[Rfam]
RNA sequence: CCAGACGGCCGGGCGGUCGCUCCUGUCCUUCGGGGCAGGGGAGGAAAGUCCGGGCUCCACUACGACAUGGCGGCGGGUAACGCCCGCCGGGGGCGACCCCAGGGAUAGCGCCACAGAGAGCAGACCGCCCCGGUCGCGGCCGGGGCAAGGGUGAAAGGGUGCGGUAAGAGCGCACCGCGGACCCAGCAAUGGGGACGGCAUGGCAAGCCCCGCCAGGAGCAAGACCGAAUAGGGACCCCGCGCCGGAGCGAUCCGGCAGGGCUGUCGCAGGCCCAGGGGUCCGGGUAGGUCGCGAGAACCGUCCAGCAAUGGGCGGUCCAGAGGAAUGAUCGCCGCGCCCGUUUCGGCGGGCGGCACAGAACCCGGCUUACAGGCCGUCUGGUUUC
Numbered sequence: 001c002c003a004g005a006c007g008g009c010c011g012g013g014c015g016g017u018c019g020c021u022c023c024u025g026u027c028c029u030u031c032g033g034g035g036c037a038g039g040g041g042a043g044g045a046a047a048g049u050c051c052g053g054g055c056u057c058c059a060c061u062a063c064g065a066c067a068u069g070g071c072g073g074c075g076g077g078u079a080a081c082g083c084c085c086g087c088c089g090g091g092g093g094c095g096a097c098c099c100c101a102g103g104g105a106u107a108g109c110g111c112c113a114c115a116g117a118g119a120g121c122a123g124a125c126c127g128c129c130c131c132g133g134u135c136g137c138g139g140c141c142g143g144g145g146c147a148a149g150g151g152u153g154a155a156a157g158g159g160u161g162c163g164g165u166a167a168g169a170g171c172g173c174a175c176c177g178c179g180g181a182c183c184c185a186g187c188a189a190u191g192g193g194g195a196c197g198g199c200a201u202g203g204c205a206a207g208c209c210c211c212g213c214c215a216g217g218a219g220c221a222a223g224a225c226c227g228a229a230u231a232g233g234g235a236c237c238c239c240g241c242g243c244c245g246g247a248g249c250g251a252u253c254c255g256g257c258a259g260g261g262c263u264g265u266c267g268c269a270g271g272c273c274c275a276g277g278g279g280u281c282c283g284g285g286u287a288g289g290u291c292g293c294g295a296g297a298a299c300c301g302u303c304c305a306g307c308a309a310u311g312g313g314c315g316g317u318c319c320a321g322a323g324g325a326a327u328g329a330u331c332g333c334c335g336c337g338c339c340c341g342u343u344u345c346g347g348c349g350g351g352c353g354g355c356a357c358a359g360a361a362c363c364c365g366g367c368u369u370a371c372a373g374g375c376c377g378u379c380u381g382g383u384u385u386c
Stems, first nucleotide, its partner, number of pairs: 001382010011371001012334007020041009046369003050366005055219004068215005073087005088102001089100004103210002108208002110204003125150002127146008158176006177199001178197002182193004223291004233282006259274005298317008
Dot-bracket structure: ((((((((((((((((((.(((((((((....)))))))))....[[[.[[[[[((((.........((((((((((.....)))))(((((....)))).)((...(((((............((((((((((....))))))))..)).......((((((.......))))))(((..((((....))))..)).)..)))..)))))))))))))...((((......((((((....................(((((......)))))..)))))).....))))......((((((((....))))))))..........)))))))...........................]]]]]]]].).))))))))))....

Description
Shown here is a 386-nucleotide RNA sequence from Phenylobacterium parvum, a member of the family "Bacterial RNase P class A". Taxonomically the source falls in Phenylobacterium (Bacteria, Pseudomonadati, Pseudomonadota, Caulobacteraceae). The family is grouped with related families in Rfam's "RNaseP clan". The base pairs follow the family's consensus structure, which is taken from published work. From the family's description: Ribonuclease P (RNase P) is a ubiquitous endoribonuclease, found in archaea, bacteria and eukarya as well as chloroplasts and mitochondria.